[Rfam]
RNA sequence: GGGAUGUGGUUAGACCAGGAGACCUGAAGAAUGGCUCUUCUGUUUACAACACAUCCAAUAGGAAUCCAGGGACAUUGUGCAGAGGGGCGCAAAACUUGUGACUUGCCUUUGAGCAAAUGUCCUACACAU
Numbered sequence: 001g002g003g004a005u006g007u008g009g010u011u012a013g014a015c016c017a018g019g020a021g022a023c024c025u026g027a028a029g030a031a032u033g034g035c036u037c038u039u040c041u042g043u044u045u046a047c048a049a050c051a052c053a054u055c056c057a058a059u060a061g062g063a064a065u066c067c068a069g070g071g072a073c074a075u076u077g078u079g080c081a082g083a084g085g086g087g088c089g090c091a092a093a094a095c096u097u098g099u100g101a102c103u104u105g106c107c108u109u110u111g112a113g114c115a116a117a118u119g120u121c122c123u124a125c126a127c128a129u
Base pairs, nucleotide, nucleotide: 002056003055004054005053006052007051008050013045014044016042017041018040019039020038021037023034024033069122070121071120076115077114078113082110084104085103086102088100089099090098091097092096
The family of this 129-nucleotide sequence from Octodon degus is "Small nucleolar RNA SNORA11". The match comes from Rfam's covariance-model search (114 bits). From the family's description: U107 (SNORA11) is a member of the H/ACA class of snoRNAs that guide the sites of modification of uridines to pseudouridines. By type it is an H/ACA-box small nucleolar RNA. On this family, see Gu et al., Nucleic Acids Res 2005: "A novel experimental approach for systematic identification of box H/ACA snoRNAs from eukaryotes". The family's consensus secondary structure was predicted with RNAalifold. The family has 35 seed sequences and 2,014 matches in Rfam 15.1.